[Rfam]
RNA: SAM (S-adenosyl methionine) riboswitch aptamer
RNA sequence: CGUCAAGAGUCUCAGCGACAAGCCCCGGCUGGCUGAGCGGCAACCCUCCACCGCGGUGGGGUGCCCCGGGUGAGGACAAGGUCGGCGACGCCGUCGACAAGCGCGGGGC
Numbered sequence: 001c002g003u004c005a006a007g008a009g010u011c012u013c014a015g016c017g018a019c020a021a022g023c024c025c026c027g028g029c030u031g032g033c034u035g036a037g038c039g040g041c042a043a044c045c046c047u048c049c050a051c052c053g054c055g056g057u058g059g060g061g062u063g064c065c066c067c068g069g070g071u072g073a074g075g076a077c078a079a080g081g082u083c084g085g086c087g088a089c090g091c092c093g094u095c096g097a098c099a100a101g102c103g104c105g106g107g108g109c
Stems, first nucleotide, its partner, number of pairs: 002077003009038001011037006021030002039065003044061003048056002081098007